Rfam assigns this 138-nucleotide RNA sequence from Myotis brandtii to the family "Small nucleolar RNA SNORA57". The base pairs follow the family's consensus structure, which was predicted with PFOLD. Gene Ontology terms of the family: nucleolus and RNA processing.
RNA sequence: UCUUCUUGGUGGGGUUCGGGCGUGCGGUCCCAGUUCCCGUUAUGAACGGAGGCAGAGAUCCCCGGCUCCCUUGGUGUCAUUCUUCCCAUGCUGGUGGUUUCCAGUCCACCGGUUCUAUCCCCAAGCACCAGGACUCAG
Numbered sequence: 001u002c003u004u005c006u007u008g009g010u011g012g013g014g015u016u017c018g019g020g021c022g023u024g025c026g027g028u029c030c031c032a033g034u035u036c037c038c039g040u041u042a043u044g045a046a047c048g049g050a051g052g053c054a055g056a057g058a059u060c061c062c063c064g065g066c067u068c069c070c071u072u073g074g075u076g077u078c079a080u081u082c083u084u085c086c087c088a089u090g091c092u093g094g095u096g097g098u099u100u101c102c103a104g105u106c107c108a109c110c111g112g113u114u115c116u117a118u119c120c121c122c123a124a125g126c127a128c129c130a131g132g133a134c135u136c137a138g
Stems, first nucleotide, its partner, number of pairs: 010039005018031003072130006091112007